[Rfam]
RNA sequence: AAAAUAGAGAGUUUGAUGAUGGCUCUAACUGAACACUGUCCAAGUACUUGACACAUGCUAAUCGAACGACUAAUUAGUUUAAUUAUUAUCUAAUAUUUAAAUUAAGUAGUAGUGGUGUACAGGUGAGUAAAAGAUAAAUUGGCUACCUUAAAGUAAGGGAAAAAAUCCCUUAUAAUCAAAGGUUAAUAUUACCGCUUUAAGAUGAUAAUUUUUAUCUCGGUGAGUAGUAGGAAAGGUAAUGACUUUUCUAGCAAUAAACCGUAGUCGUAACUGGAAAGUUGAUCGACCACAUUGGGUCUGAAAAAAACCCAAUGCUUUUAUGUACAGCAGUGAGGAAUAUUGGUCAAUGGCCGAAAGGCUGAACCAGUAACUUGGAAGAAUGUCUAUGUAACUUGUAUGGUUACAUUCGCGAUUAACUCGCAUAAAAUUCUAAAUAGAUUGUAUAUAAUGACAUAAUCUAUUUAUAAGUCUUGACCAAACUACGUGCCAGCAGUCGCGGUAAUACGUAGGAGGCUAGUGUUAGUUAUCUUUAUUG
Number, nucleotide and partner (000 for none) at each position: 001a000002a000003a000004a000005u000006a000007g000008a000009g025010a024011g023012u022013u021014u000015g000016a000017u000018g000019a000020u000021g013022g012023c011024u010025c009026u000027a525028a524029c523030u522031g000032a521033a520034c519035a518036c517037u516038g000039u376040c375041c374042a373043a372044g371045u369046a368047c334048u000049u000050g000051a000052c332053a331054c330055a000056u329057g328058c327059u000060a000061a116062u115063c114064g000065a000066a113067c112068g000069a110070c109071u000072a107073a000074u105075u104076a103077g102078u101079u100080u099081a098082a097083u000084u000085a000086u000087u000088a000089u000090c000091u000092a000093a000094u000095a000096u000097u082098u081099a080100a079101a078102u077103u076104a075105a074106g000107u072108a000109g070110u069111a000112g067113u066114g063115g062116u061117g000118u000119a000120c000121a000122g000123g290124u289125g288126a000127g000128u000129a000130a000131a000132a217133g216134a215135u214136a213137a212138a211139u000140u000141g000142g000143c204144u000145a000146c000147c201148u200149u199150a198151a197152a196153g195154u000155a171156a170157g169158g168159g000160a000161a000162a000163a000164a000165a000166u000167c000168c158169c157170u156171u155172a000173u000174a000175a000176u000177c000178a000179a000180a000181g193182g192183u191184u000185a000186a000187u000188a000189u000190u000191a183192c182193c181194g000195c153196u152197u151198u150199a149200a148201g147202a000203u000204g143205a000206u000207a000208a000209u000210u000211u138212u137213u136214a135215u134216c133217u132218c261219g260220g259221u258222g000223a000224g252225u251226a000227g000228u250229a249230g248231g247232a246233a245234a244235g243236g000237u000238a000239a000240u000241g000242a000243c235244u234245u233246u232247u231248c230249u229250a228251g225252c224253a000254a000255u000256a000257a000258a221259c220260c219261g218262u000263a000264g287265u286266c285267g284268u000269a280270a279271c278272u277273g000274g000275a000276a000277a272278g271279u270280u269281g000282a000283u000284c267285g266286a265287c264288c125289a124290c123291a000292u312293u311294g310295g309296g308297u307298c000299u000300g000301a000302a000303a000304a000305a000306a000307a297308c296309c295310c294311a293312a292313u000314g323315c322316u000317u000318u000319u000320a000321u000322g315323u314324a000325c000326a000327g058328c057329a056330g054331u053332g052333a000334g047335g000336a000337a000338u000339a000340u366341u000342g365343g364344u363345c000346a000347a000348u361349g360350g359351c358352c357353g000354a000355a000356a000357g352358g351359c350360u349361g348362a000363a344364c343365c342366a340367g000368u046369a045370a000371c044372u043373u042374g041375g040376a039377a000378g430379a429380a428381u427382g000383u000384c000385u000386a000387u000388g421389u420390a000391a000392c000393u000394u000395g000396u000397a000398u000399g000400g000401u000402u000403a000404c000405a000406u000407u000408c000409g000410c000411g000412a000413u000414u000415a000416a000417c000418u000419c000420g389421c388422a000423u000424a000425a000426a000427a381428u380429u379430c378431u000432a000433a000434a461435u460436a459437g458438a457439u000440u000441g000442u000443a000444u000445a000446u000447a000448a000449u000450g000451a000452c000453a000454u000455a000456a000457u438458c437459u436460a435461u434462u000463u000464a000465u000466a000467a000468g514469u513470c512471u511472u510473g000474a000475c000476c000477a000478a000479a000480c509481u508482a507483c506484g505485u000486g000487c000488c000489a000490g497491c496492a000493g000494u000495c000496g491497c490498g000499g000500u000501a000502a000503u000504a000505c484506g483507u482508a481509g480510g472511a471512g470513g469514c468515u000516a037517g036518u035519g034520u033521u032522a030523g029524u028525u027526a000527u000528c000529u000530u000531u000532a000533u000534u000535g000